[Rfam]
RNA: permuted transfer-messenger RNA
RNA sequence: GGUGACUUUACGAAUAGGAUCGGACAGGGGUUCAACUCCCCUCAGCUCCACUCAUGGGGCUGCACUGGUUUUGACGGUCUAUCACGAUUGUGACUGAAACCUGCUUGGAUAAGCAAACCACAUCUGCAAAAACAGAUAACACCGCAGCGAAUAACAUCGUUGCAUUCUCUCGUCCUGUAGCCCCAGUUCGCUCACGUGAACUCGUUGCUGCUUAG
Numbered sequence: 001g002g003u004g005a006c007u008u009u010a011c012g013a014a015u016a017g018g019a020u021c022g023g024a025c026a027g028g029g030g031u032u033c034a035a036c037u038c039c040c041c042u043c044a045g046c047u048c049c050a051c052u053c054a055u056g057g058g059g060c061u062g063c064a065c066u067g068g069u070u071u072u073g074a075c076g077g078u079c080u081a082u083c084a085c086g087a088u089u090g091u092g093a094c095u096g097a098a099a100c101c102u103g104c105u106u107g108g109a110u111a112a113g114c115a116a117a118c119c120a121c122a123u124c125u126g127c128a129a130a131a132a133c134a135g136a137u138a139a140c141a142c143c144g145c146a147g148c149g150a151a152u153a154a155c156a157u158c159g160u161u162g163c164a165u166u167c168u169c170u171c172g173u174c175c176u177g178u179a180g181c182c183c184c185a186g187u188u189c190g191c192u193c194a195c196g197u198g199a200a201c202u203c204g205u206u207g208c209u210g211c212u213u214a215g
Base pairs, nucleotide, nucleotide: 001095002094003093005091016080017079018078020077021076022075026042027041028040029039030038043062044061045060046059047058048057049056